[Rfam]
RNA: tRNA
Organism: Natronosalvus rutilus
RNA sequence: GGGCGAGUGGCCUAGCGGAGAGGGCAGGAGGUUCCUAACCUUCUGAUCGCGGGUUCGAAUCCCGUCUCGCCCG
Number, nucleotide and partner (000 for none) at each position: 001g072002g071003g070004c069005g068006a067007g066008u000009g000010g025011c024012c023013u022014a000015g000016c000017g000018g000019a000020g000021a000022g013023g012024g011025c010026a000027g043028g042029a041030g040031g039032u000033u000034c000035c000036u000037a000038a000039c031040c030041u029042u028043c027044u000045g000046a000047u000048c000049g065050c064051g063052g062053g061054u000055u000056c000057g000058a000059a000060u000061c053062c052063c051064g050065u049066c007067u006068c005069g004070c003071c002072c001073g000